RNA sequence: AAUUGAAAAAGGCAAACUUAUUGAAAGAUAAGGUCGCAAAACCACGGGUCUAAAGCGCUACUGCCACGACAGCCGGGUUACCAAU
Number, nucleotide and partner (000 for none) at each position: 001a000002a000003u000004u000005g000006a000007a000008a000009a000010a000011g000012g037013c036014a000015a000016a000017c032018u031019u030020a029021u028022u027023g000024a000025a000026a000027g022028a021029u020030a019031a018032g017033g000034u000035c000036g013037c012038a000039a000040a079041a078042c077043c076044a000045c075046g074047g073048g070049u069050c068051u000052a000053a000054a000055g064056c063057g062058c000059u000060a000061c000062u057063g056064c055065c000066a000067c000068g050069a049070c048071a000072g000073c047074c046075g045076g043077g042078u041079u040080a000081c000082c000083a000084a000085u000
This 85-nucleotide RNA sequence from Paenibacillus sp. J31TS4 belongs to the Rfam family "c-di-GMP-I riboswitch aptamer". Pairs were carried over by alignment from the consensus structure, which is taken from published work. On this family, see Weinberg et al., Nucleic Acids Res 2007: "Identification of 22 candidate structured RNAs in bacteria using the CMfinder comparative genomics pipeline". The organism belongs to Paenibacillus, within Bacteria.